Notes:
This 157-nucleotide sequence belongs to the Rfam family "Group II catalytic intron D1-D4-3". Gene Ontology term of the family: Group II intron splicing. Group II introns are found in rRNA, tRNA and mRNA of organelles in fungi, plants and protists, and also in mRNA in bacteria. The match comes from Rfam's covariance-model search (35 bits).
[Rfam]
RNA sequence: AUGGUAGAGAGGCCAACUAGGAAGGAAGCUCUUUUCAAAUUCCUGCUCACGAACAGGGAGGAAUUGGUUGAGAACGUGAACAUGGAAGUUAGCUUGAUGUUUCAGUAACACUGAAAUGGUAAGGGUUCAAGAUCCCAACGGGAAGAAGGAAAGCAGC
Numbered sequence: 001a002u003g004g005u006a007g008a009g010a011g012g013c014c015a016a017c018u019a020g021g022a023a024g025g026a027a028g029c030u031c032u033u034u035u036c037a038a039a040u041u042c043c044u045g046c047u048c049a050c051g052a053a054c055a056g057g058g059a060g061g062a063a064u065u066g067g068u069u070g071a072g073a074a075c076g077u078g079a080a081c082a083u084g085g086a087a088g089u090u091a092g093c094u095u096g097a098u099g100u101u102u103c104a105g106u107a108a109c110a111c112u113g114a115a116a117u118g119g120u121a122a123g124g125g126u127u128c129a130a131g132a133u134c135c136c137a138a139c140g141g142g143a144a145g146a147a148g149g150a151a152a153g154c155a156g157c
Stems, first nucleotide, its partner, number of pairs: 002015004028157003032153001035150002040144006047137001060135003064131002073127003077122001079120001081118003084103004